[Rfam]
RNA: Bacterial large subunit ribosomal RNA, nucleotides 573 to 800
Organism: Holospora undulata
RNA sequence: GAGUUUGUUUGUGAAGCGAGCUUAAGUCGUUAGAUGUAGGCGAAGCGAAAGCGAGUCUUAAUAGGGCGUAUAGUUUCACGAAUAAGACCCGAAACCAGGUGAUCUAGCCAUGAACAGGCUGAAGGUGCGGUAAUGCGUGCUGGAGGGCCGAACCAUAUGCUGUUGCAAAAGUUGUGGAUGAUUUGUGGUUAGGGGUGAAAGGCCAAUCAAACCUGGAAAUAGCUGGUU
Numbered sequence: 001g002a003g004u005u006u007g008u009u010u011g012u013g014a015a016g017c018g019a020g021c022u023u024a025a026g027u028c029g030u031u032a033g034a035u036g037u038a039g040g041c042g043a044a045g046c047g048a049a050a051g052c053g054a055g056u057c058u059u060a061a062u063a064g065g066g067c068g069u070a071u072a073g074u075u076u077c078a079c080g081a082a083u084a085a086g087a088c089c090c091g092a093a094a095c096c097a098g099g100u101g102a103u104c105u106a107g108c109c110a111u112g113a114a115c116a117g118g119c120u121g122a123a124g125g126u127g128c129g130g131u132a133a134u135g136c137g138u139g140c141u142g143g144a145g146g147g148c149c150g151a152a153c154c155a156u157a158u159g160c161u162g163u164u165g166c167a168a169a170a171g172u173u174g175u176g177g178a179u180g181a182u183u184u185g186u187g188g189u190u191a192g193g194g195g196u197g198a199a200a201g202g203c204c205a206a207u208c209a210a211a212c213c214u215g216g217a218a219a220u221a222g223c224u225g226g227u228u
Base pairs, nucleotide, nucleotide: 005085006084007083008082009081010080011079012078013077014076015075016074017073020041021040022039023038026035027034028033045052046051055067056066057065058064088226089225091223095216096215097214098213099212100211104192105191106190107189108188109187110186111185112184113183114182115180117149118148119147120146124141125140126139127138128137129136153177154176155175159172160171161170194204195203196202
Dot-bracket structure: ....(((((((((((((..((((..(((....)))..))))...((....))..((((.....)))).....)))))))))))))..((.(...((((((...((((((((((((.((((...((((((......))))))....))))...(((...(((........)))..)))..).))))))))))).(((.....)))......))))))......).))..